[Rfam]
Notes: A member of the RNA family "Actinomyces-1 RNA" from Actinomyces weissii, 110 nucleotides long. It scores 82 bits against the family's covariance model. The family's consensus secondary structure is taken from published work.
RNA sequence: GUCACCACCGGACGGCAGCCUCCUAGAGGGUUGGGGAACCUGAUGAAGGGUUGCUGCUGAGUGUCCUACCGGGUUUAAGGGAGCCUGGUGGCCACGUUCUGGUGAAGCAG
Numbered sequence: 001g002u003c004a005c006c007a008c009c010g011g012a013c014g015g016c017a018g019c020c021u022c023c024u025a026g027a028g029g030g031u032u033g034g035g036g037a038a039c040c041u042g043a044u045g046a047a048g049g050g051u052u053g054c055u056g057c058u059g060a061g062u063g064u065c066c067u068a069c070c071g072g073g074u075u076u077a078a079g080g081g082a083g084c085c086u087g088g089u090g091g092c093c094a095c096g097u098u099c100u101g102g103u104g105a106a107g108c109a110g
Stems, first nucleotide, its partner, number of pairs: 006104007013059004018054002022050003028041005061095003065091002070087005